[Rfam]
RNA sequence: AUCUUGGUCGGAAACCAAGAUACAAAAGGAA
Numbered sequence: 001a002u003c004u005u006g007g008u009c010g011g012a013a014a015c016c017a018a019g020a021u022a023c024a025a026a027a028g029g030a031a
Stems, first nucleotide, its partner, number of pairs: 001021008
This 31-nucleotide RNA from Juglans regia belongs to the Rfam family "L31-Coriobacteria ribosomal protein leader". On this family, see Eckert and Weinberg, BMC Microbiol 2020: "Discovery of 20 novel ribosomal leader candidates in bacteria and archaea". Clan: Ribosomal Protein L31 Leader clan. NCBI's taxonomy places the organism under Eukaryota, Tracheophyta, Mesangiospermae, eudicotyledons, Juglans.